RNA sequence: AGAGCAUCAGUGAUGUUGUCUUCCUUUUGUUAUCCUUGCACUUUGAUUGCUAGUGAAGAAAUUCAUGGGAAAUAUUCAGUCUGAGGUGCUC
Number, nucleotide and partner (000 for none) at each position: 001a000002g091003a090004g089005c088006a087007u086008c085009a000010g000011u000012g000013a000014u000015g000016u000017u000018g000019u000020c000021u000022u000023c000024c000025u000026u000027u000028u000029g000030u000031u000032a000033u000034c000035c000036u000037u000038g000039c000040a000041c000042u000043u000044u000045g000046a000047u000048u000049g000050c000051u000052a000053g000054u000055g000056a000057a000058g000059a000060a000061a000062u000063u000064c000065a000066u000067g000068g000069g000070a000071a000072a000073u000074a000075u000076u000077c000078a000079g000080u000081c000082u000083g000084a000085g008086g007087u006088g005089c004090u003091c002
Background: Small nucleolar RNA snoR26: a 91-nucleotide sequence from Tetracentron sinense. On this family, see Brown et al., RNA 2001: "Multiple snoRNA gene clusters from Arabidopsis". It is annotated as a C/D-box small nucleolar RNA. It scores 88 bits against the family's covariance model. Rfam 15.1 lists 611 matches to the family in 220 species. NCBI's taxonomy places the organism under Eukaryota, Magnoliopsida, Mesangiospermae, Trochodendraceae, Tetracentron.